[Rfam]
RNA sequence: UUACCAGUCAGUCUCCUGACUAAAUUCCAGCUGCUAGCUGGAAUUUAGUCAGGGAGACUGGCUAUAAA
Numbered sequence: 001u002u003a004c005c006a007g008u009c010a011g012u013c014u015c016c017u018g019a020c021u022a023a024a025u026u027c028c029a030g031c032u033g034c035u036a037g038c039u040g041g042a043a044u045u046u047a048g049u050c051a052g053g054g055a056g057a058c059u060g061g062c063u064a065u066a067a068a
Base pairs, nucleotide, nucleotide: 007062008061009060011058012057013054014053017051018050019049020048021047022046023045024044027041028040029039030038031037
RNA: mir-344 microRNA precursor family